[Rfam]
RNA sequence: GGCUGGUCCGGCAGUAGUGGGUUAUUAGAACUUAUUAACAUUAGUGGCACUAAAGUUGGUAUUCAAUCCCCCACUGCUAAAUUUGACUGGCUAUUA
Numbered sequence: 001g002g003c004u005g006g007u008c009c010g011g012c013a014g015u016a017g018u019g020g021g022u023u024a025u026u027a028g029a030a031c032u033u034a035u036u037a038a039c040a041u042u043a044g045u046g047g048c049a050c051u052a053a054a055g056u057u058g059g060u061a062u063u064c065a066a067u068c069c070c071c072c073a074c075u076g077c078u079a080a081a082u083u084u085g086a087c088u089g090g091c092u093a094u095u096a
Stems, first nucleotide, its partner, number of pairs: 001092008010084002015079001016075006033061003037057002
Y RNA: a 96-nucleotide RNA from Propithecus coquereli. Rfam describes the family as follows. Y RNAs are components of the Ro ribonucleoprotein particle (Ro RNP), in association with Ro60 and La proteins. The source organism's lineage runs through Eukaryota, Chordata, Boreoeutheria, Primates and Propithecus. It scores 62 bits against the family's covariance model. By type it is a non-coding RNA gene.